[Rfam]
RNA sequence: GCAAACUACAGCGAGAAACUGUAGCACCGAAAAUCCAAGGUUUCCUGGGGAAGGUUAAUCCACCCAGGGUUAGUCGAUCCUAAGGCGAGGCCGAAAGGCGUAGUCGAUGGACAUCCGGUUAAUAUUCCGGAACUGGCUAUGAACGUUAAAACCUUGAUGUGACGCGGAAGGCUAAAUGUGCGGACUGUUGGAAUAGUCCGUCCAAACCCGUAGUUCUGUCGAAAGACAGGAUGAGAGGUGAUGGGGAGCUGCGAUUAUAUCAAAGCGAAGGCAUUGAUGCCCGGCCGCCGAGAAAAACCAUCAAGGGAGUAUCAUAGUCAAUCGUACCGUAAUCCGACACAGGUAGAUAACCAGAAUAUGGUAAGGUGCU
Numbered sequence: 001g002c003a004a005a006c007u008a009c010a011g012c013g014a015g016a017a018a019c020u021g022u023a024g025c026a027c028c029g030a031a032a033a034u035c036c037a038a039g040g041u042u043u044c045c046u047g048g049g050g051a052a053g054g055u056u057a058a059u060c061c062a063c064c065c066a067g068g069g070u071u072a073g074u075c076g077a078u079c080c081u082a083a084g085g086c087g088a089g090g091c092c093g094a095a096a097g098g099c100g101u102a103g104u105c106g107a108u109g110g111a112c113a114u115c116c117g118g119u120u121a122a123u124a125u126u127c128c129g130g131a132a133c134u135g136g137c138u139a140u141g142a143a144c145g146u147u148a149a150a151a152c153c154u155u156g157a158u159g160u161g162a163c164g165c166g167g168a169a170g171g172c173u174a175a176a177u178g179u180g181c182g183g184a185c186u187g188u189u190g191g192a193a194u195a196g197u198c199c200g201u202c203c204a205a206a207c208c209c210g211u212a213g214u215u216c217u218g219u220c221g222a223a224a225g226a227c228a229g230g231a232u233g234a235g236a237g238g239u240g241a242u243g244g245g246g247a248g249c250u251g252c253g254a255u256u257a258u259a260u261c262a263a264a265g266c267g268a269a270g271g272c273a274u275u276g277a278u279g280c281c282c283g284g285c286c287g288c289c290g291a292g293a294a295a296a297a298c299c300a301u302c303a304a305g306g307g308a309g310u311a312u313c314a315u316a317g318u319c320a321a322u323c324g325u326a327c328c329g330u331a332a333u334c335c336g337a338c339a340c341a342g343g344u345a346g347a348u349a350a351c352c353a354g355a356a357u358a359u360g361g362u363a364a365g366g367u368g369c370u
Base pairs, nucleotide, nucleotide: 006024007023008022009021010020011019025368026367027366028365033348034347035346039328040327044068045067046066047065048064049063053061054060075324076323077322078321079110080109084105085104086103088101090099091098092097114131115130116129117128118127134320135319136318137317138316139315140314141313142312152306153305156302157301158300159299160297164288165287166286167285170281171280172279175275176274177273178272179271180201181200182199183198184197185196202244203243206239207238208237213232214231215230216229217228218227219226220225248266249265250264334343335342350362351361352360353359

Annotation
The record is a 370-nucleotide part of an RNA from an uncultured bacterium, which matches "Bacterial large subunit ribosomal RNA" in Rfam. It is one of the family's seed sequences.